Notes
Shown here is a 37-nucleotide sequence from Corymbia citriodora, a member of the family "Plastid psbT antisense RNA". About the family: Plastid-psbT-asRNA is an antisense RNA (asRNA) motif reported in Plastids It has been shown that psbT expression is controlled by two antisense RNAs originated from psbN transcription by the nuclear-encoded polymerase (NEP), in which the short antisense RNA hybridizes to psbT CDS, thereby stabilizing psbT transcript while blocking its translation during photooxidative stress. The family has 93 seed sequences and 1,866 matches in Rfam 15.1. The family's consensus secondary structure was predicted with LocARNA. It scores 49 bits against the family's covariance model.
[Rfam]
RNA sequence: GUAGUUGGAUCUCCAAGCUUUUGGAAGGCUCCAAUUC
Number, nucleotide and partner (000 for none) at each position: 001g000002u000003a000004g000005u016006u015007g014008g013009a000010u000011c000012u000013c008014c007015a006016a005017g000018c000019u000020u034021u000022u033023g032024g031025a030026a000027g000028g000029c000030u025031c024032c023033a022034a020035u000036u000037c000